[Rfam]
A member of the RNA family "Pseudomonas sRNA P27" from Pseudomonas guineae, 189 nucleotides long. It is annotated as a small RNA. The literature on the family includes a 2006 paper in Nucleic Acids Res by Livny et al., "Identification of 17 Pseudomonas aeruginosa sRNAs and prediction of sRNA-encoding genes in 10 diverse pathogens using the bioinformatic tool sRNAPredict2". It scores 164 bits against the family's covariance model. The family's consensus secondary structure was predicted with WAR.

RNA sequence: GGGUUUAACUCCUGCUUGUUACCGUUUCAUCCUCCCGAAGGUGGAUGUCGUUUUGGUGUCUGAUUCGGUAAGAAUCCGGAGCACCAUCUGCGUAGGUUUUAAGUUUAAGGCUUACGCCACCUACGGUCUUGGAUAGCCCCCGCAAAGCAGGGACCCCAAAGUGUCGAAACGGCGCAAUCGCUUACGCCG
Numbered sequence: 001g002g003g004u005u006u007a008a009c010u011c012c013u014g015c016u017u018g019u020u021a022c023c024g025u026u027u028c029a030u031c032c033u034c035c036c037g038a039a040g041g042u043g044g045a046u047g048u049c050g051u052u053u054u055g056g057u058g059u060c061u062g063a064u065u066c067g068g069u070a071a072g073a074a075u076c077c078g079g080a081g082c083a084c085c086a087u088c089u090g091c092g093u094a095g096g097u098u099u100u101a102a103g104u105u106u107a108a109g110g111c112u113u114a115c116g117c118c119a120c121c122u123a124c125g126g127u128c129u130u131g132g133a134u135a136g137c138c139c140c141c142g143c144a145a146a147g148c149a150g151g152g153a154c155c156c157c158a159a160a161g162u163g164u165c166g167a168a169a170c171g172g173c174g175c176a177a178u179c180g181c182u183u184a185c186g187c188c189g
Stems, first nucleotide, its partner, number of pairs: 002156002005153002011147001013145001023050002028047005034041002054086006060078001062076005090143003095138004103134010171188004176183001